[Rfam]
RNA sequence: AACUUCUCUAUAAAGCGCCCUGCUAAAACUGCUGGAACCGAACCUUAGAGUUUAGUUCAUGUGGAUGUGUAAGCAUGGGCACACCAGAGAAGAAGAGGAAAAAGCAGAGGGUUGAAAAGAGGCUGGGGGGACCUCUUUCUUAAUGUCCGAUGUCCUUUGUCUCAAGAUCCUGUGAAACAGUG
Numbered sequence: 001a002a003c004u005u006c007u008c009u010a011u012a013a014a015g016c017g018c019c020c021u022g023c024u025a026a027a028a029c030u031g032c033u034g035g036a037a038c039c040g041a042a043c044c045u046u047a048g049a050g051u052u053u054a055g056u057u058c059a060u061g062u063g064g065a066u067g068u069g070u071a072a073g074c075a076u077g078g079g080c081a082c083a084c085c086a087g088a089g090a091a092g093a094a095g096a097g098g099a100a101a102a103a104g105c106a107g108a109g110g111g112u113u114g115a116a117a118a119g120a121g122g123c124u125g126g127g128g129g130g131a132c133c134u135c136u137u138u139c140u141u142a143a144u145g146u147c148c149g150a151u152g153u154c155c156u157u158u159g160u161c162u163c164a165a166g167a168u169c170c171u172g173u174g175a176a177a178c179a180g181u182g
Stems, first nucleotide, its partner, number of pairs: 018079002021075004028068002035058001037056002040053004045049001105174002108171004125153001127151001129148003

Shown here is a 182-nucleotide RNA sequence from Cynoglossus semilaevis, a member of the family "Small nucleolar RNA SNORA81". The source organism's lineage runs through Eukaryota, Vertebrata, Clupeocephala, Euteleosteomorpha and Cynoglossus. For this family Rfam cites "A novel experimental approach for systematic identification of box H/ACA snoRNAs from eukaryotes" (Gu et al., Nucleic Acids Res, 2005). The family's RNA type in Rfam is H/ACA-box small nucleolar RNA. The family has 28 seed sequences and 1,161 matches in Rfam 15.1.